Overview: Shown here is an 84-nucleotide sequence from Rubrobacter xylanophilus, a member of the family "Fluoride riboswitch aptamer (crcB RNA motif)".
RNA sequence: GACGAUACGGGCGAUGAGGCCCGCCUUCCGGGGGCUCCGCCUCCGGAGAACCGCGCCGGCGGCGCUGAUGGCUUCUGCCCCGCA
Numbered sequence: 001g002a003c004g005a006u007a008c009g010g011g012c013g014a015u016g017a018g019g020c021c022c023g024c025c026u027u028c029c030g031g032g033g034g035c036u037c038c039g040c041c042u043c044c045g046g047a048g049a050a051c052c053g054c055g056c057c058g059g060c061g062g063c064g065c066u067g068a069u070g071g072c073u074u075c076u077g078c079c080c081c082g083c084a
Stems, first nucleotide, its partner, number of pairs: 010025004016075006053065004
Dot-bracket structure: .........[[[[..((((((]]]]...........................((((.....))))....)))))).........